[Rfam]
RNA: Small nucleolar RNA SNORD21
RNA sequence: GCUACAUGAUGACACUCCCGAUGACUGAACACUCUCUGGCUGGUCCGUGGUGUGUAUAUGAUGUACUGCACUGUUUCAAGACGGGACUGAUGGCAGC
Numbered sequence: 001g002c003u004a005c006a007u008g009a010u011g012a013c014a015c016u017c018c019c020g021a022u023g024a025c026u027g028a029a030c031a032c033u034c035u036c037u038g039g040c041u042g043g044u045c046c047g048u049g050g051u052g053u054g055u056a057u058a059u060g061a062u063g064u065a066c067u068g069c070a071c072u073g074u075u076u077c078a079a080g081a082c083g084g085g086a087c088u089g090a091u092g093g094c095a096g097c
Stems, first nucleotide, its partner, number of pairs: 001094004